[Rfam]
Small nucleolar RNA SNORD123: a 69-nucleotide sequence from Chiloscyllium punctatum. Gene Ontology terms of the family: RNA processing and nucleolus.
Nucleotides: 069
Base pairs, nucleotide, nucleotide: 001069002068003067004066005065006064
Number, partner (000 for none) and nucleotide at each position: 001069u002068g003067u004066g005065a006064a007000a008000g009000u010000g011000a012000u013000g014000a015000a016000a017000u018000u019000g020000g021000g022000g023000a024000u025000c026000u027000g028000a029000a030000a031000u032000c033000a034000u035000c036000u037000g038000a039000a040000g041000u042000u043000a044000a045000g046000a047000u048000g049000c050000c051000a052000u053000c054000c055000a056000u057000u058000u059000c060000c061000u062000g063000a064006u065005u066004c067003a068002c069001a
For this family Rfam cites "snoSeeker: an advanced computational package for screening of guide and orphan snoRNA genes in the human genome" (Yang et al., Nucleic Acids Res, 2006). Lineage of the source: Eukaryota > Eumetazoa > Elasmobranchii > Selachii > Chiloscyllium.